[Rfam]
RNA sequence: UGACGGGGACCCGCACAAGCGGUGGAUGAUGUGGAUUAAUUCGAUGCAACACGAAAAACCUUACCUACUCUUGACAUGUUUGGAAUUUUAAAGAAAUUUAAAAGUGCUUGAAAAAGAACCAAAACACAGGUGCUGCAUGGCUGUCGUCAGCUCGUGUCGUGAGAUGUUGGGUUAAGUCCCGCAACGAGCGCAACCCUUGUUAUUAUUUGCUAAUAAAAAGAACUUUAAUAAGACUGCCAAUGACAAAUUGGAGGAAGGUGGGGAUGACGUCAAGUCCUCAUGGCCCUUAUGAGUAGGGCUUCACACGUCAUACAAUGAUAUAUACAAUGGGUAGCAAAUUUGUGAAAAUGAGCCAAUCCUUAAAGUAUAUCUUAGUUCGGAUUGUAGUCUGCAACUCGACUACAUGAAGUUGGAAUCGCUAGUAAUCGCGGAUCAGCAUGCCGCGGUGAAUACGUUCUCGGGUCUUGUACACACCGCCCGUCACACCAUGGAAGUGAUUUUUACCAGAAAUUAUUUGUUUAACCUUUAUUGGAAAAAAAUAAUUAAGGUAGAAUUCAUGACUGGGGUGAAGUCGUAACAAGG
Numbered sequence: 001u002g003a004c005g006g007g008g009a010c011c012c013g014c015a016c017a018a019g020c021g022g023u024g025g026a027u028g029a030u031g032u033g034g035a036u037u038a039a040u041u042c043g044a045u046g047c048a049a050c051a052c053g054a055a056a057a058a059c060c061u062u063a064c065c066u067a068c069u070c071u072u073g074a075c076a077u078g079u080u081u082g083g084a085a086u087u088u089u090a091a092a093g094a095a096a097u098u099u100a101a102a103a104g105u106g107c108u109u110g111a112a113a114a115a116g117a118a119c120c121a122a123a124a125c126a127c128a129g130g131u132g133c134u135g136c137a138u139g140g141c142u143g144u145c146g147u148c149a150g151c152u153c154g155u156g157u158c159g160u161g162a163g164a165u166g167u168u169g170g171g172u173u174a175a176g177u178c179c180c181g182c183a184a185c186g187a188g189c190g191c192a193a194c195c196c197u198u199g200u201u202a203u204u205a206u207u208u209g210c211u212a213a214u215a216a217a218a219a220g221a222a223c224u225u226u227a228a229u230a231a232g233a234c235u236g237c238c239a240a241u242g243a244c245a246a247a248u249u250g251g252a253g254g255a256a257g258g259u260g261g262g263g264a265u266g267a268c269g270u271c272a273a274g275u276c277c278u279c280a281u282g283g284c285c286c287u288u289a290u291g292a293g294u295a296g297g298g299c300u301u302c303a304c305a306c307g308u309c310a311u312a313c314a315a316u317g318a319u320a321u322a323u324a325c326a327a328u329g330g331g332u333a334g335c336a337a338a339u340u341u342g343u344g345a346a347a348a349u350g351a352g353c354c355a356a357u358c359c360u361u362a363a364a365g366u367a368u369a370u371c372u373u374a375g376u377u378c379g380g381a382u383u384g385u386a387g388u389c390u391g392c393a394a395c396u397c398g399a400c401u402a403c404a405u406g407a408a409g410u411u412g413g414a415a416u417c418g419c420u421a422g423u424a425a426u427c428g429c430g431g432a433u434c435a436g437c438a439u440g441c442c443g444c445g446g447u448g449a450a451u452a453c454g455u456u457c458u459c460g461g462g463u464c465u466u467g468u469a470c471a472c473a474c475c476g477c478c479c480g481u482c483a484c485a486c487c488a489u490g491g492a493a494g495u496g497a498u499u500u501u502u503a504c505c506a507g508a509a510a511u512u513a514u515u516u517g518u519u520u521a522a523c524c525u526u527u528a529u530u531g532g533a534a535a536a537a538a539a540u541a542a543u544u545a546a547g548g549u550a551g552a553a554u555u556c557a558u559g560a561c562u563g564g565g566g567u568g569a570a571g572u573c574g575u576a577a578c579a580a581g582g
Stems, first nucleotide, its partner, number of pairs: 001471002003468003007465007015455002019419005024313001026311008034302002040055004064297007077126002079123005086103007105118001107116002129286002132284004138280002140275003143271001145269002150189006156165003168181004195263004200231006210220002234254002237251005317371007329360003334353002339348003378409001383404007425447007474581001476578001479574002484568004489563003494558004499553007510543006518536003523532002
A member of the RNA family "Bacterial small subunit ribosomal RNA" from Candidatus Zinderia insecticola, 582 nucleotides of a longer RNA. It is one of the family's seed sequences. Gene Ontology terms of the family: structural constituent of ribosome and ribosome. The family's consensus secondary structure is taken from published work. Lineage of the source: Bacteria > Burkholderiales > Oxalobacteraceae > Candidatus Zinderia > Candidatus Zinderia insecticola.